[Rfam]
RNA sequence: GUACGCCAAACGCACACCCGGCGCGAGCCGGCGUCGCAAAGCCCAUGGGUCCCGGCGACUACCCCAUCGCCGCGGGACAGCCGGGUUCCCAUA
Number, nucleotide and partner (000 for none) at each position: 001g000002u000003a000004c000005g000006c000007c000008a000009a000010a000011c000012g037013c036014a000015c000016a000017c000018c031019c030020g029021g028022c027023g000024c000025g000026a000027g022028c021029c020030g019031g018032c000033g000034u000035c000036g013037c012038a000039a000040a087041g086042c085043c084044c000045a000046u083047g082048g081049g078050u077051c076052c072053c000054g070055g000056c000057g000058a000059c000060u000061a000062c000063c000064c000065c000066a000067u000068c000069g000070c054071c000072g052073c000074g000075g000076g051077a050078c049079a000080g000081c048082c047083g046084g043085g042086u041087u040088c000089c000090c000091a000092u000093a000
Background:
The family of this 93-nucleotide sequence from Cognatiluteimonas weifangensis is "c-di-GMP-I riboswitch aptamer". GEMM was predicted in a large-scale screen for bacterial structured RNA regulatory elements. The base pairs follow the family's consensus structure, which is taken from published work. Taxonomically the source falls in Cognatiluteimonas (Bacteria, Pseudomonadota, Lysobacterales, Lysobacteraceae). It scores 39 bits against the family's covariance model.